[Rfam]
Nucleotides: 067
Stems, first nucleotide, its partner, number of pairs: 006061002009058004022050005029045006
Number, partner (000 for none) and nucleotide at each position: 001000u002000a003000u004000g005000c006061g007060g008000g009058c010057c011056g012055g013000g014000c015000c016000c017000c018000u019000c020000u021000g022050g023049c024048g025047c026046c027000u028000u029045c030044g031043c032042g033041a034040c035000u036000u037000u038000u039000u040034g041033u042032u043031g044030c045029g046026g047025g048024c049023g050022u051000g052000a053000u054000g055012u056011c057010g058009g059000a060007c061006c062000g063000c064000a065000u066000c067000g